[Rfam]
The family of this 58-nucleotide sequence from Modestobacter muralis is "msiK RNA".
It scores 44 bits against the family's covariance model.
Rfam classes the family as a cis-regulatory element.

RNA sequence: ACCCCGUCCCACCCACUCGGAUCGUCCGGCACGUUCCUGCCGGUAGGAGGACUUCACA
Numbered sequence: 001a002c003c004c005c006g007u008c009c010c011a012c013c014c015a016c017u018c019g020g021a022u023c024g025u026c027c028g029g030c031a032c033g034u035u036c037c038u039g040c041c042g043g044u045a046g047g048a049g050g051a052c053u054u055c056a057c058a
Stems, first nucleotide, its partner, number of pairs: 009050002012047002015044001026043006